Overview: The family of this 258-nucleotide RNA from Trichonephila clavata is "RNase MRP". The organism belongs to Trichonephila, within Eukaryota. The family's consensus secondary structure is taken from published work. The family is grouped with related families in Rfam's "RNaseP clan". The family's RNA type in Rfam is ribozyme. A search with the family's covariance model found it, with a score of 100 bits.
RNA sequence: AGAUCCGCUACCAGCUUGUCAUCGGAGCUACGUUCGGGUCCGUGUGACUCAAAAUGCUCUGGGUAAAGUCCCCGAACCCACUGACGGAGAGCGGUCGUGCUGUAAAGGUACUGUUCUAUUCUCACUCCUAACUGCAACUGUGAAGGUUCUGCCUGAGUUGUAAGGAAAUCAAGGAAUAGGAAACAGUUCAAUAUUCCUAAGAAAUACAAGCAGAACUUAAAAGAGUUCUUACAGAAUGGGGCUUAUUGGAAGUGGAUC
Numbered sequence: 001a002g003a004u005c006c007g008c009u010a011c012c013a014g015c016u017u018g019u020c021a022u023c024g025g026a027g028c029u030a031c032g033u034u035c036g037g038g039u040c041c042g043u044g045u046g047a048c049u050c051a052a053a054a055u056g057c058u059c060u061g062g063g064u065a066a067a068g069u070c071c072c073c074g075a076a077c078c079c080a081c082u083g084a085c086g087g088a089g090a091g092c093g094g095u096c097g098u099g100c101u102g103u104a105a106a107g108g109u110a111c112u113g114u115u116c117u118a119u120u121c122u123c124a125c126u127c128c129u130a131a132c133u134g135c136a137a138c139u140g141u142g143a144a145g146g147u148u149c150u151g152c153c154u155g156a157g158u159u160g161u162a163a164g165g166a167a168a169u170c171a172a173g174g175a176a177u178a179g180g181a182a183a184c185a186g187u188u189c190a191a192u193a194u195u196c197c198u199a200a201g202a203a204a205u206a207c208a209a210g211c212a213g214a215a216c217u218u219a220a221a222a223g224a225g226u227u228c229u230u231a232c233a234g235a236a237u238g239g240g241g242c243u244u245a246u247u248g249g250a251a252g253u254g255g256a257u258c
Stems, first nucleotide, its partner, number of pairs: 002258008011249001014211006022062007036050005066244003070241004083095001085093002097111004113177003119171001122168001126166004135160004145153003213228006